[Rfam]
RNA sequence: GCCUCCGAGGAUGAAUAACAAAACUUUCGUUCUUCUGAGUUGCCCCAUGCAGAAAAUUAUUGGAGACCUGAACUGAGGAGGC
Numbered sequence: 001g002c003c004u005c006c007g008a009g010g011a012u013g014a015a016u017a018a019c020a021a022a023a024c025u026u027u028c029g030u031u032c033u034u035c036u037g038a039g040u041u042g043c044c045c046c047a048u049g050c051a052g053a054a055a056a057u058u059a060u061u062g063g064a065g066a067c068c069u070g071a072a073c074u075g076a077g078g079a080g081g082c
Stems, first nucleotide, its partner, number of pairs: 003080004
Record summary:
A member of the RNA family "Small nucleolar RNA Z159/U59" from Senna tora, 82 nucleotides long. By type it is a C/D-box small nucleolar RNA. The match comes from Rfam's covariance-model search (62 bits).